[Rfam]
RNA sequence: UAACCCUACUUGUGAAAGUAGACUGACCGUACAGAAGUCAGCAGACGCCAUAGUACGCCAGAUGUUGCAACAUCUGGCGGAAGGGC
Numbered sequence: 001u002a003a004c005c006c007u008a009c010u011u012g013u014g015a016a017a018g019u020a021g022a023c024u025g026a027c028c029g030u031a032c033a034g035a036a037g038u039c040a041g042c043a044g045a046c047g048c049c050a051u052a053g054u055a056c057g058c059c060a061g062a063u064g065u066u067g068c069a070a071c072a073u074c075u076g077g078c079g080g081a082a083g084g085g086c
Stems, first nucleotide, its partner, number of pairs: 001025002006021006037046003047086003056079008
The family of this 86-nucleotide sequence from Aureibacillus halotolerans is "Group II catalytic intron D1-D4-1".
It scores 71 bits against the family's covariance model.
Taxonomically the source falls in Aureibacillus (Bacteria, Bacilli, Caryophanales, Bacillaceae).
Rfam's curators write: Group II introns are found in rRNA, tRNA and mRNA of organelles in fungi, plants and protists, and also in mRNA in bacteria.
A reference for the family is Lehmann and Schmidt (2003), "Group II introns: structure and catalytic versatility of large natural ribozymes", Crit Rev Biochem Mol Biol.